[Rfam]
A member of the RNA family "narK RNA" from Pseudomonas syringae group genomosp. 3, 72 nucleotides long. It is annotated as a cis-regulatory element. The organism belongs to Pseudomonas syringae pv. maculicola, within Bacteria.
RNA sequence: GGCCCGUCUAUUGCUUUGGCAAUGGCACCGGUAGCCAACGGCGGCUACCACCGAUUACGACAAAGACGUCGC
Numbered sequence: 001g002g003c004c005c006g007u008c009u010a011u012u013g014c015u016u017u018g019g020c021a022a023u024g025g026c027a028c029c030g031g032u033a034g035c036c037a038a039c040g041g042c043g044g045c046u047a048c049c050a051c052c053g054a055u056u057a058c059g060a061c062a063a064a065g066a067c068g069u070c071g072c
Stems, first nucleotide, its partner, number of pairs: 030049007